[Rfam]
RNA sequence: CGCCGAGGACGACUUCGGCGCUGACGCACACUGAGGGACGGCCCU
Numbered sequence: 001c002g003c004c005g006a007g008g009a010c011g012a013c014u015u016c017g018g019c020g021c022u023g024a025c026g027c028a029c030a031c032u033g034a035g036g037g038a039c040g041g042c043c044c045u
Base pairs, nucleotide, nucleotide: 001020002019003018004017005016006015007014008013034045035044036043037042
RNA: Guanidine-II riboswitch aptamer (mini-ykkC)
Organism: Variovorax sp. PDC80